[Rfam]
Shown here is a 371-nucleotide sequence from Actinobaculum sp. 352, a member of the family "Bacterial RNase P class A".
It scores 298 bits against the family's covariance model.
The family's RNA type in Rfam is ribozyme.
RNA sequence: UGAGUCGGCCAGGCGGCCGCGUGGCCUGCGGGAAUCUGCGGGCCCCGAGGAACGUCCGGGCUCCAUAGGGAACGGUGGUGGGUAACGCCCACCCGGGGCGACCCGCGGGAUAGCGCCACAGAGAAUAGACCGCCGCGGCUGCGGCCGAGGUAAGGGUGAAACGGUGGUGUAAGAGACCACCGCGUUGCGGGUGACCGCGACGGCACGGCAAGCCCCACCGGGAGCAAGGUCAGACAGCGCGCGUUUGAGGCGUCCCGCUUAGCGCGCGGGUGGACUGCUCGAGUCUCGUGGUAACACGCGACCUAGAUGGAUGGCCGCCGCCGCCCGGUUUUCGGGCGGAACAGAACCCGGCGUAUCGGCUGACUCAUUCG
Numbered sequence: 001u002g003a004g005u006c007g008g009c010c011a012g013g014c015g016g017c018c019g020c021g022u023g024g025c026c027u028g029c030g031g032g033a034a035u036c037u038g039c040g041g042g043c044c045c046c047g048a049g050g051a052a053c054g055u056c057c058g059g060g061c062u063c064c065a066u067a068g069g070g071a072a073c074g075g076u077g078g079u080g081g082g083u084a085a086c087g088c089c090c091a092c093c094c095g096g097g098g099c100g101a102c103c104c105g106c107g108g109g110a111u112a113g114c115g116c117c118a119c120a121g122a123g124a125a126u127a128g129a130c131c132g133c134c135g136c137g138g139c140u141g142c143g144g145c146c147g148a149g150g151u152a153a154g155g156g157u158g159a160a161a162c163g164g165u166g167g168u169g170u171a172a173g174a175g176a177c178c179a180c181c182g183c184g185u186u187g188c189g190g191g192u193g194a195c196c197g198c199g200a201c202g203g204c205a206c207g208g209c210a211a212g213c214c215c216c217a218c219c220g221g222g223a224g225c226a227a228g229g230u231c232a233g234a235c236a237g238c239g240c241g242c243g244u245u246u247g248a249g250g251c252g253u254c255c256c257g258c259u260u261a262g263c264g265c266g267c268g269g270g271u272g273g274a275c276u277g278c279u280c281g282a283g284u285c286u287c288g289u290g291g292u293a294a295c296a297c298g299c300g301a302c303c304u305a306g307a308u309g310g311a312u313g314g315c316c317g318c319c320g321c322c323g324c325c326c327g328g329u330u331u332u333c334g335g336g337c338g339g340a341a342c343a344g345a346a347c348c349c350g351g352c353g354u355a356u357c358g359g360c361u362g363a364c365u366c367a368u369u370c371g
Base pairs, nucleotide, nucleotide: 001367002366003365004364005363006362007361008360009359010358011356012319013318014317015316016315017314018313020047021046023044024043025042026041027040028039029038030037052354053353054352056351057350058349059348060347061224062223063222064221068256069255070254071253073220074219075218076217077216078092079091080090081089082088093107094105095104096103097102108215109214113213114212115209116208117207130155131154132151133150134149136147137146138145139144163181164180165179166178167177168176182204183202184201185200186199187198188197189196190195228276229275230274231273237267238266239265240264241263242262248260249259250258251257283302284301285300287298288297289296290295